[Rfam]
RNA sequence: GGAUCGGGAGGCUUCUGGUGGGACAGAGGCCGGGAAUUGAUCUGAACAUCCCUGUUUCGAUUGGGCGAGCGGCCGGGGCCCGACGGCGCGCGCG
Number, nucleotide and partner (000 for none) at each position: 001g043002g042003a041004u040005c039006g000007g000008g000009a000010g031011g030012c029013u028014u027015c026016u025017g024018g000019u000020g000021g000022g000023a000024c017025a016026g015027a014028g013029g012030c011031c010032g000033g000034g000035a000036a000037u000038u000039g005040a004041u003042c002043u001044g000045a000046a000047c000048a000049u000050c000051c000052c000053u000054g000055u000056u000057u000058c000059g000060a000061u000062u000063g000064g000065g000066c094067g093068a000069g091070c090071g000072g087073c086074c085075g084076g000077g000078g000079c000080c000081c000082g000083a000084c075085g074086g073087c072088g000089c000090g070091c069092g000093c067094g066